[Rfam]
RNA: Small nucleolar RNA snoR145
Organism: Coptis chinensis
RNA sequence: UGGUGAAGGUCCCAGCGGAGAGGUAGGACCUCUAUAAUUGAGUCUUCUCUAACAACAAAUCAUACCUUCAUAGACUAAGAUAGUAUCGGCUGUUUUGUACGGUGUACAAAAUUGUUAUUAUUUUUGGGGCAUCUUUAUUAAUCGGCUAUAUAUCA
Numbered sequence: 001u002g003g004u005g006a007a008g009g010u011c012c013c014a015g016c017g018g019a020g021a022g023g024u025a026g027g028a029c030c031u032c033u034a035u036a037a038u039u040g041a042g043u044c045u046u047c048u049c050u051a052a053c054a055a056c057a058a059a060u061c062a063u064a065c066c067u068u069c070a071u072a073g074a075c076u077a078a079g080a081u082a083g084u085a086u087c088g089g090c091u092g093u094u095u096u097g098u099a100c101g102g103u104g105u106a107c108a109a110a111a112u113u114g115u116u117a118u119u120a121u122u123u124u125u126g127g128g129g130c131a132u133c134u135u136u137a138u139u140a141a142u143c144g145g146c147u148a149u150a151u152a153u154c155a
Stems, first nucleotide, its partner, number of pairs: 003071007011020001013018001026048002030042003034038001089146004094141002101133002104130002107126005